[Rfam]
RNA sequence: GAAGUAAACGAGGUAAUCGCUGGUGGUGAAUACCACGAGAGGAAAGUCCGAGCUUUAUAGGGCAGGGUGCCGGCUAACGGCCGGUGGGGGCAACCCUAAGGCUAGUGCCACAGAAAUGAAGACCGCCGAUGGAGAAGCUGAUUCUCACAGGUAAGGAUGCAACGGUGCGGUAAGAGCGCACCAGCAACAUGGAGACAUGUUGGCUAGGUAAACCCCACCCAAAGCAAGACCGGAUAGGAGAUCAGAUACUGUUGCCCGCAGUGAUCUCGGGUUGGUCGCUUGAACCUCAUAGCAAUAUGAGGUCUAGAGAGAUGAUUACCCCUUCAAUGUGGCAGAUGUUCAAGCCAUCGCAAUGACCACAAGAAGGACAGAACUCGGCUUAUUGUUUGCUUCUUAA
Numbered sequence: 001g002a003a004g005u006a007a008a009c010g011a012g013g014u015a016a017u018c019g020c021u022g023g024u025g026g027u028g029a030a031u032a033c034c035a036c037g038a039g040a041g042g043a044a045a046g047u048c049c050g051a052g053c054u055u056u057a058u059a060g061g062g063c064a065g066g067g068u069g070c071c072g073g074c075u076a077a078c079g080g081c082c083g084g085u086g087g088g089g090g091c092a093a094c095c096c097u098a099a100g101g102c103u104a105g106u107g108c109c110a111c112a113g114a115a116a117u118g119a120a121g122a123c124c125g126c127c128g129a130u131g132g133a134g135a136a137g138c139u140g141a142u143u144c145u146c147a148c149a150g151g152u153a154a155g156g157a158u159g160c161a162a163c164g165g166u167g168c169g170g171u172a173a174g175a176g177c178g179c180a181c182c183a184g185c186a187a188c189a190u191g192g193a194g195a196c197a198u199g200u201u202g203g204c205u206a207g208g209u210a211a212a213c214c215c216c217a218c219c220c221a222a223a224g225c226a227a228g229a230c231c232g233g234a235u236a237g238g239a240g241a242u243c244a245g246a247u248a249c250u251g252u253u254g255c256c257c258g259c260a261g262u263g264a265u266c267u268c269g270g271g272u273u274g275g276u277c278g279c280u281u282g283a284a285c286c287u288c289a290u291a292g293c294a295a296u297a298u299g300a301g302g303u304c305u306a307g308a309g310a311g312a313u314g315a316u317u318a319c320c321c322c323u324u325c326a327a328u329g330u331g332g333c334a335g336a337u338g339u340u341c342a343a344g345c346c347a348u349c350g351c352a353a354u355g356a357c358c359a360c361a362a363g364a365a366g367g368a369c370a371g372a373a374c375u376c377g378g379c380u381u382a383u384u385g386u387u388u389g390c391u392u393c394u395u396a397a
Stems, first nucleotide, its partner, number of pairs: 001393011012320007020039002023036005044381003048378005053224004060257004065220005070084005085099001086097004100215002105213002107209003123156002125152003130147003164182006184204001185202007228277004238268006248262005284303008
RNA: Bacterial RNase P class A